[Rfam]
RNA sequence: ACACGAGAAAGGAGGUGGUCCGAAGUUGUAUAGCUACAGGACUCGUCGUGAGGUGGCUGUCCGCUAGGACCGUUCUUUUCCCAAGGUGGUCCGGGCGAAUCCCAGGCAGCCACCCGGCCCCCGUGAUCCCGAGCCCAGUCCAGCUCGGCCCGCGCCCAGGCGCGGGAAGCGAUCCGGGGGCCGCUCCAC
Numbered sequence: 001a002c003a004c005g006a007g008a009a010a011g012g013a014g015g016u017g018g019u020c021c022g023a024a025g026u027u028g029u030a031u032a033g034c035u036a037c038a039g040g041a042c043u044c045g046u047c048g049u050g051a052g053g054u055g056g057c058u059g060u061c062c063g064c065u066a067g068g069a070c071c072g073u074u075c076u077u078u079u080c081c082c083a084a085g086g087u088g089g090u091c092c093g094g095g096c097g098a099a100u101c102c103c104a105g106g107c108a109g110c111c112a113c114c115c116g117g118c119c120c121c122c123g124u125g126a127u128c129c130c131g132a133g134c135c136c137a138g139u140c141c142a143g144c145u146c147g148g149c150c151c152g153c154g155c156c157c158a159g160g161c162g163c164g165g166g167a168a169g170c171g172a173u174c175c176g177g178g179g180g181c182c183g184c185u186c187c188a189c
Base pairs, nucleotide, nucleotide: 014061015060016059017058018057019056062097063096064095065094067092068091070089071088072087073086075085076084077083115183116182117181118180119179120178121177122176123175125174126173127172129148130147131146132145133144134143